Notes
The record is a 116-nucleotide sequence from a Syntrophomonadaceae bacterium, which matches "Ribosomal protein L20 leader" in Rfam. Rfam links the family to the GO term regulation of gene expression.

[Rfam]
RNA sequence: GCAUAAAAGUAGAAGCCAUCCCGCUUCUCACCUUACAACUUUGUAUCGUUAGUAAGGUAUUUUGAAAUAAUCUUUGUAUUUUCGAGCGGGUGGUUAUCUCGCUCUUAUUUUUUACU
Numbered sequence: 001g002c003a004u005a006a007a008a009g010u011a012g013a014a015g016c017c018a019u020c021c022c023g024c025u026u027c028u029c030a031c032c033u034u035a036c037a038a039c040u041u042u043g044u045a046u047c048g049u050u051a052g053u054a055a056g057g058u059a060u061u062u063u064g065a066a067a068u069a070a071u072c073u074u075u076g077u078a079u080u081u082u083c084g085a086g087c088g089g090g091u092g093g094u095u096a097u098c099u100c101g102c103u104c105u106u107a108u109u110u111u112u113u114a115c116u
Stems, first nucleotide, its partner, number of pairs: 011028006030058003035053002038049002085103006092097001